[Rfam]
RNA: Phenylalanine leader peptide
RNA sequence: UAUUGUUACUUUUUUUUUUUUUUUGGAUCAGUCUUCUUGCAAGAAGACUGAUCCAAAAUAAAAAAAAGGCCUUCCUCAUGAGGAAGGCUUUUGGAU
Number, nucleotide and partner (000 for none) at each position: 001u000002a000003u000004u000005g000006u000007u000008a000009c000010u000011u000012u000013u000014u000015u000016u063017u062018u061019u060020u000021u058022u057023u056024u055025g054026g053027a052028u051029c050030a049031g048032u047033c046034u045035u000036c043037u042038u000039g000040c000041a000042a037043g036044a000045a034046g033047a032048c031049u030050g029051a028052u027053c026054c025055a024056a023057a022058a021059u000060a019061a018062a017063a016064a000065a000066a000067a090068g089069g088070c087071c086072u085073u084074c083075c082076u081077c000078a000079u000080g000081a076082g075083g074084a073085a072086g071087g070088c069089u068090u067091u000092u000093g000094g000095a000096u000